[Rfam]
RNA sequence: AACUCCGGUGGCGUGGGCUGCCUUUCCCAAAGGAACUCCGGGGUGAAAGAAACCCACCCAAGCCCCACCCCUCCUCCCGGCUCCUCACGUGUCGAAGCCGCAGCUCACUCGCCCGGGUGAACAUCACCAACUCAGCUGGAUUUCGGCCCGGUUGCUUGCUCUACGCUCACGGCAGCACAACCGCAGUCACACAGCGGACAUACGACGGCCCUCGCCGGGACUGGCAUCCCAAUGCGAGGGCCUGACCACCAAGGAAGAAGAGCGCUUCCCG
Numbered sequence: 001a002a003c004u005c006c007g008g009u010g011g012c013g014u015g016g017g018c019u020g021c022c023u024u025u026c027c028c029a030a031a032g033g034a035a036c037u038c039c040g041g042g043g044u045g046a047a048a049g050a051a052a053c054c055c056a057c058c059c060a061a062g063c064c065c066c067a068c069c070c071c072u073c074c075u076c077c078c079g080g081c082u083c084c085u086c087a088c089g090u091g092u093c094g095a096a097g098c099c100g101c102a103g104c105u106c107a108c109u110c111g112c113c114c115g116g117g118u119g120a121a122c123a124u125c126a127c128c129a130a131c132u133c134a135g136c137u138g139g140a141u142u143u144c145g146g147c148c149c150g151g152u153u154g155c156u157u158g159c160u161c162u163a164c165g166c167u168c169a170c171g172g173c174a175g176c177a178c179a180a181c182c183g184c185a186g187u188c189a190c191a192c193a194g195c196g197g198a199c200a201u202a203c204g205a206c207g208g209c210c211c212u213c214g215c216c217g218g219g220a221c222u223g224g225c226a227u228c229c230c231a232a233u234g235c236g237a238g239g240g241c242c243u244g245a246c247c248a249c250c251a252a253g254g255a256a257g258a259a260g261a262g263c264g265c266u267u268c269c270c271g
Stems, first nucleotide, its partner, number of pairs: 007250004016099004105120006135176002137169003207242005213236003217230004253269005
Source information:
This 271-nucleotide RNA belongs to the Rfam family "Streptomyces sRNA 4677". From the family's description: Located in the intergenic region between anti-sigma factor SCO4677 gene and a putative regulatory protein gene SCO4676. scr4677 expression requires the SCO4677 activity and scr4677 sRNA itself seem to affect the levels of the SCO4676-associated transcripts. It scores 186 bits against the family's covariance model. Pairs were carried over by alignment from the consensus structure. For this family Rfam cites "Complex intra-operonic dynamics mediated by a small RNA in Streptomyces coelicolor" (Hindra et al., PLoS One, 2014). By type it is a small RNA.